[Rfam]
RNA sequence: UUAAUCACAAAUUCAUACACUCGUAUAACUGUGAGAAUAUGGCUCACGAGUCUCUACCGGACGACCUUAAAUCGUUUGACUACGAGUGACAAAAUAUAGAAG
Dot-bracket structure: .................((((((((....((((((.......)))))).........(((((((.......)))))))..))))))))..............
Numbered sequence: 001u002u003a004a005u006c007a008c009a010a011a012u013u014c015a016u017a018c019a020c021u022c023g024u025a026u027a028a029c030u031g032u033g034a035g036a037a038u039a040u041g042g043c044u045c046a047c048g049a050g051u052c053u054c055u056a057c058c059g060g061a062c063g064a065c066c067u068u069a070a071a072u073c074g075u076u077u078g079a080c081u082a083c084g085a086g087u088g089a090c091a092a093a094a095u096a097u098a099g100a101a102g
Stems, first nucleotide, its partner, number of pairs: 018088008030048006058078007